[Rfam]
RNA: M-box riboswitch aptamer (ykoK leader)
RNA sequence: UACAUCGUCCGGUAGGUAAGGCUACCACAAGGAUACGGACUGCUGCCGCGGAGUAGUGGAGACACUAUGAGAGGGUUUGAACAGGUUGCAUCGAAAGCAAGGUGCCAUCUAAUGCAGUUUCACCGCCUCGUGAUGCUAAAGCUUGAACGGUAAGGAAACUUC
Numbered sequence: 001u002a003c004a005u006c007g008u009c010c011g012g013u014a015g016g017u018a019a020g021g022c023u024a025c026c027a028c029a030a031g032g033a034u035a036c037g038g039a040c041u042g043c044u045g046c047c048g049c050g051g052a053g054u055a056g057u058g059g060a061g062a063c064a065c066u067a068u069g070a071g072a073g074g075g076u077u078u079g080a081a082c083a084g085g086u087u088g089c090a091u092c093g094a095a096a097g098c099a100a101g102g103u104g105c106c107a108u109c110u111a112a113u114g115c116a117g118u119u120u121c122a123c124c125g126c127c128u129c130g131u132g133a134u135g136c137u138a139a140a141g142c143u144u145g146a147a148c149g150g151u152a153a154g155g156a157a158a159c160u161u162c
Stems, first nucleotide, its partner, number of pairs: 005158001008155002011148001013100001015143003020137003026132003030128003039118005045077001046074002049071001055066004084109003090103003